[Rfam]
RNA: mir-87 microRNA precursor family
Organism: Acrobeloides nanus
RNA sequence: UGCUCGCGGCCUGGGACUUAGCCUCAACCUCAGAAAAUUUUAACUAGGUGAGCAAAGUUUCAGGUGUGCGAGCAA
Numbered sequence: 001u002g003c004u005c006g007c008g009g010c011c012u013g014g015g016a017c018u019u020a021g022c023c024u025c026a027a028c029c030u031c032a033g034a035a036a037a038u039u040u041u042a043a044c045u046a047g048g049u050g051a052g053c054a055a056a057g058u059u060u061c062a063g064g065u066g067u068g069c070g071a072g073c074a075a
Stems, first nucleotide, its partner, number of pairs: 002073006009065006016058004023052004028048003